[Rfam]
RNA sequence: UUUUACUUAAACGACGUAAGCCCUACCUCUCUUACAUCCUUACGGCUCCGAAGCCGAUCCAGUGUGAAUAAGUGUUCCGAUAAAAAA
Numbered sequence: 001u002u003u004u005a006c007u008u009a010a011a012c013g014a015c016g017u018a019a020g021c022c023c024u025a026c027c028u029c030u031c032u033u034a035c036a037u038c039c040u041u042a043c044g045g046c047u048c049c050g051a052a053g054c055c056g057a058u059c060c061a062g063u064g065u066g067a068a069u070a071a072g073u074g075u076u077c078c079g080a081u082a083a084a085a086a087a
Stems, first nucleotide, its partner, number of pairs: 035066002039062002043056005

The family of this 87-nucleotide RNA from Bacillus sp. FJAT-27916 is "BsrC". The literature on the family includes a 2008 paper in Gene by Saito et al., "Novel small RNA-encoding genes in the intergenic regions of Bacillus subtilis". The family's consensus secondary structure was predicted with CMfinder. From the family's description: The 301 nucleotide sequence from Kouji Nakamura has been trimmed to a highly conserved ~85 nucleotide long core to form this family. By type it is a small RNA. NCBI's taxonomy places the organism under Bacteria, Bacillati, Bacilli, Bacillaceae, Bacillus.